[Rfam]
RNA sequence: CGAACCAAGUAGAAGCUCCCGCUUCUCACCUGUUGCGACGCUAUAGGCAGUUGGCAGGUCUUAUAUAUACAUGUUAAUUUCAUGUGUAGAGAAGAGCGGGUAUAUUAUAUACUCGCUCUUUUUGCUUGGG
Numbered sequence: 001c002g003a004a005c006c007a008a009g010u011a012g013a014a015g016c017u018c019c020c021g022c023u024u025c026u027c028a029c030c031u032g033u034u035g036c037g038a039c040g041c042u043a044u045a046g047g048c049a050g051u052u053g054g055c056a057g058g059u060c061u062u063a064u065a066u067a068u069a070c071a072u073g074u075u076a077a078u079u080u081c082a083u084g085u086g087u088a089g090a091g092a093a094g095a096g097c098g099g100g101u102a103u104a105u106u107a108u109a110u111a112c113u114c115g116c117u118c119u120u121u122u123u124g125c126u127u128g129g130g
Base pairs, nucleotide, nucleotide: 011026012025013024014023015022016021028059029058030057037052038051039050040048041047095117096116097115098114099113100112101111102110103109104108
A member of the RNA family "Ribosomal protein L20 leader" from Staphylococcus saprophyticus, 130 nucleotides long.
About the family: This family is a putative r-protein leader autoregulatory structure found in B. subtilis and other low-GC Gram-positive bacteria. It is located in the 5' untranslated regions of mRNAs encoding initiation factor 3 followed by ribosomal proteins L35 and L20 (infC-rpmI-rplT). A Rho-independent transcription terminator structure that is probably involved in regulation is included at the 3' end.
The base pairs follow the family's consensus structure, which was predicted with CMfinder.
By type it is a cis-regulatory leader.